RNA sequence: GUAUUCACCUCAAUCCACAUGUGUUGAAAUGGAUUGAAGUGGAACUUAAACUUAUUUCCACUCCAAUCUACCUCAACACAUGUGGAUUGAUGUGUGAAA
Numbered sequence: 001g002u003a004u005u006c007a008c009c010u011c012a013a014u015c016c017a018c019a020u021g022u023g024u025u026g027a028a029a030u031g032g033a034u035u036g037a038a039g040u041g042g043a044a045c046u047u048a049a050a051c052u053u054a055u056u057u058c059c060a061c062u063c064c065a066a067u068c069u070a071c072c073u074c075a076a077c078a079c080a081u082g083u084g085g086a087u088u089g090a091u092g093u094g095u096g097a098a099a
Stems, first nucleotide, its partner, number of pairs: 004098005010090017030070007039061003